[Rfam]
RNA sequence: CUGGUUGUAGAGAUACAGUGAUCAGGUUACGAUGGAUUUCUUAAUUAACUACCUCGUAGCUUGAUCACGAUAUCCCUAUGACUUG
Numbered sequence: 001c002u003g004g005u006u007g008u009a010g011a012g013a014u015a016c017a018g019u020g021a022u023c024a025g026g027u028u029a030c031g032a033u034g035g036a037u038u039u040c041u042u043a044a045u046u047a048a049c050u051a052c053c054u055c056g057u058a059g060c061u062u063g064a065u066c067a068c069g070a071u072a073u074c075c076c077u078a079u080g081a082c083u084u085g
Stems, first nucleotide, its partner, number of pairs: 003083008012074004018068015034053002
RNA: mir-1329 microRNA precursor family